[Rfam]
RNA sequence: GCGGGGAUGGUCUAGUUGGUUAUGACGGCCGCUUAACACGCGGCAGGUGCUGGGUUCGAUCCCCAGUUCCCGUA
Numbered sequence: 001g002c003g004g005g006g007a008u009g010g011u012c013u014a015g016u017u018g019g020u021u022a023u024g025a026c027g028g029c030c031g032c033u034u035a036a037c038a039c040g041c042g043g044c045a046g047g048u049g050c051u052g053g054g055u056u057c058g059a060u061c062c063c064c065a066g067u068u069c070c071c072g073u074a
Stems, first nucleotide, its partner, number of pairs: 001073007010026003028044005050066005
Dot-bracket structure: (((((((..(((...........))).(((((.......))))).....(((((.......)))))))))))).